[Rfam]
RNA sequence: CCGCUAUCCGCUAACCGGUCUGGCCGUGUCGCGGAAGGUUGUCCUGCAUCAUAACGAGUGAGACACUCGGAUAGGUGAAGCG
Numbered sequence: 001c002c003g004c005u006a007u008c009c010g011c012u013a014a015c016c017g018g019u020c021u022g023g024c025c026g027u028g029u030c031g032c033g034g035a036a037g038g039u040u041g042u043c044c045u046g047c048a049u050c051a052u053a054a055c056g057a058g059u060g061a062g063a064c065a066c067u068c069g070g071a072u073a074g075g076u077g078a079a080g081c082g
Stems, first nucleotide, its partner, number of pairs: 002082003007035005016026004037044002047077004055069006
This 82-nucleotide RNA sequence from Pusillimonas noertemannii belongs to the Rfam family "SucA RNA motif". The literature on the family includes a 2007 paper in Nucleic Acids Res by Weinberg et al., "Identification of 22 candidate structured RNAs in bacteria using the CMfinder comparative genomics pipeline". NCBI's taxonomy places the organism under Bacteria, Betaproteobacteria, Burkholderiales, Alcaligenaceae, Pusillimonas. The match comes from Rfam's covariance-model search (58 bits).